[Rfam]
let-7 microRNA precursor family: a 91-nucleotide RNA sequence from Oryzias latipes. Rfam links the family to the GO terms miRNA-mediated post-transcriptional gene silencing and RISC complex. From the family's description: This family represents the microRNAs (miRNA) let-7 and mir-98. let-7 was identified from a study of developmental timing in C. elegans, and was later shown to be part of a much larger class of non-coding RNAs termed miRNAs. Lineage of the source: Eukaryota > Bilateria > Percomorphaceae > Atherinomorphae > Oryzias.
Nucleotides: 091
Base pairs, nucleotide, nucleotide: 001091002090003089005087006086008085009084010083011082012081013080014079015078016077017076018075019074020073021072022071023070024069026067027066032053033052034051035050055062056061
Number, partner (000 for none) and nucleotide at each position: 001091c002090u003089g004000c005087g006086g007000u008085g009084a010083g011082g012081u013080a014079g015078u016077a017076a018075g019074u020073u021072g022071u023070g024069u025000u026067g027066u028000u029000g030000u031000u032053g033052g034051g035050g036000a037000u038000c039000a040000a041000g042000u043000a044000u045000g046000u047000g048000c049000a050035c051034c052033c053032c054000g055062c056061u057000c058000a059000g060000g061056a062055g063000a064000u065000a066027a067026c068000u069024a070023u071022a072021c073020a074019a075018c076017u077016u078015a079014c080013u081012g082011c083010c084009u085008u086006c087005c088000u089003c090002a091001g